[Rfam]
Overview
Rfam assigns this 330-nucleotide RNA from Basilea psittacipulmonis to the family "Betaproteobacteria transfer-messenger RNA". By type it is a non-coding RNA gene. The base pairs follow the family's consensus structure, which is taken from published work. About the family: Bacterial tmRNA, also known as 10Sa RNA or SsrA, is named for its dual tRNA and mRNA-like properties. Its role is to liberate the mRNA from a stalled ribosome. Gene Ontology term of the family: RNA catabolic process.

RNA sequence: AGAAGCGAUUUUUUUGUAUCAUGAUGGCAAGAAUAAUUGUAUAAUAUACAUUAAGCUGUAUAUCUGGUUGACUGAAGGUUUUCUGGACGCGGGUUCAAUUCCCGCCGUCUCCACCAAAAGUUGUUUUACAUGAGACUGCUUUUGAUGGGGACGUACUGGUUUCGACAGGGAAAGAUAGGGAGAUCGGCAGCCGGUAGGCGAAGACCGUAAAUCUAGCAAAUUUAUAAAUGCAAACGACGAAAACUUUGCAUUGGCUGCUUGAUUAGUUCAGCCAGGAGUGUGACCCACUUGGCAACAGAAUAGGUCAAAGGGGCUUUGCCCCUUUUUUUA
Numbered sequence: 001a002g003a004a005g006c007g008a009u010u011u012u013u014u015u016g017u018a019u020c021a022u023g024a025u026g027g028c029a030a031g032a033a034u035a036a037u038u039g040u041a042u043a044a045u046a047u048a049c050a051u052u053a054a055g056c057u058g059u060a061u062a063u064c065u066g067g068u069u070g071a072c073u074g075a076a077g078g079u080u081u082u083c084u085g086g087a088c089g090c091g092g093g094u095u096c097a098a099u100u101c102c103c104g105c106c107g108u109c110u111c112c113a114c115c116a117a118a119a120g121u122u123g124u125u126u127u128a129c130a131u132g133a134g135a136c137u138g139c140u141u142u143u144g145a146u147g148g149g150g151a152c153g154u155a156c157u158g159g160u161u162u163c164g165a166c167a168g169g170g171a172a173a174g175a176u177a178g179g180g181a182g183a184u185c186g187g188c189a190g191c192c193g194g195u196a197g198g199c200g201a202a203g204a205c206c207g208u209a210a211a212u213c214u215a216g217c218a219a220a221u222u223u224a225u226a227a228a229u230g231c232a233a234a235c236g237a238c239g240a241a242a243a244c245u246u247u248g249c250a251u252u253g254g255c256u257g258c259u260u261g262a263u264u265a266g267u268u269c270a271g272c273c274a275g276g277a278g279u280g281u282g283a284c285c286c287a288c289u290u291g292g293c294a295a296c297a298g299a300a301u302a303g304g305u306c307a308a309a310g311g312g313g314c315u316u317u318g319c320c321c322c323u324u325u326u327u328u329u330a
Stems, first nucleotide, its partner, number of pairs: 055191004064187002067185001072179002079172007089105005106153007192207004275290002278288002282306004307326007